[Rfam]
RNA sequence: GCAGACUCACUGUGCACUUGGCUGCAGGCUCCAAGGUGCUUUUUCCAUCUGCCAGAGAACCAUUCCAGGGAGCUGGGGCAGCCUUGGCCUGUCAGGAGCGUGAUGCAGCUUCCUGGGAACUUAGAA
Numbered sequence: 001g002c003a004g005a006c007u008c009a010c011u012g013u014g015c016a017c018u019u020g021g022c023u024g025c026a027g028g029c030u031c032c033a034a035g036g037u038g039c040u041u042u043u044u045c046c047a048u049c050u051g052c053c054a055g056a057g058a059a060c061c062a063u064u065c066c067a068g069g070g071a072g073c074u075g076g077g078g079c080a081g082c083c084u085u086g087g088c089c090u091g092u093c094a095g096g097a098g099c100g101u102g103a104u105g106c107a108g109c110u111u112c113c114u115g116g117g118a119a120c121u122u123a124g125a126a
Stems, first nucleotide, its partner, number of pairs: 001052005014039006024031001064117007072109004077104001081099002084096001

Rfam assigns this 126-nucleotide RNA sequence from Chinchilla lanigera to the family "Small nucleolar RNA SNORA77". The base pairs follow the family's consensus structure, which was predicted with RNAalifold. About the family: ACA63 (SNORA77) is a member of the H/ACA class of snoRNAs that guide the sites of modification of uridines to pseudouridines. This snoRNA was identified by computational screening and its expression in mouse experimentally verified by Northern blot and primer extension analysis. ACA63 is proposed to guide the pseudouridylation of 18S rRNA U814. On this family, see Schattner et al., RNA 2006: "A computational screen for mammalian pseudouridylation guide H/ACA RNAs". Its family is annotated with nucleolus and RNA processing in the Gene Ontology. Taxonomically the source falls in Chinchilla (Eukaryota, Eumetazoa, Mammalia, Theria).